The family of this 57-nucleotide sequence from Salibacterium salarium is "Bacillaceae-1 RNA". The source organism's lineage runs through Bacteria, Bacillota, Bacilli, Caryophanales and Salibacterium. Rfam 15.1 lists 5,721 matches to the family in 247 species.
RNA sequence: GUUCGACUAAGAGCGUCACCUCCUGUGACAACGUCGAACUGACCCACAUCGUGUGGG
Numbered sequence: 001g002u003u004c005g006a007c008u009a010a011g012a013g014c015g016u017c018a019c020c021u022c023c024u025g026u027g028a029c030a031a032c033g034u035c036g037a038a039c040u041g042a043c044c045c046a047c048a049u050c051g052u053g054u055g056g057g
Stems, first nucleotide, its partner, number of pairs: 001039007015029005043057005